U7 small nuclear RNA: a 56-nucleotide RNA from Kingdonia uniflora. A search with the family's covariance model found it, with a score of 34 bits.

Nucleotides: 056
Base pairs, nucleotide, nucleotide: 031053032052033051034050035049037047038046039045
Number, partner (000 for none) and nucleotide at each position: 001000a002000a003000g004000u005000g006000g007000u008000u009000g010000u011000c012000u013000u014000u015000u016000a017000c018000c019000a020000u021000u022000u023000g024000u025000c026000u027000a028000g029000u030000u031053g032052g033051c034050u035049u036000u037047u038046g039045u040000c041000a042000u043000u044000u045039g046038u047037g048000u049035a050034a051033g052032c053031c054000c055000a056000a

The family's consensus secondary structure was predicted with PFOLD.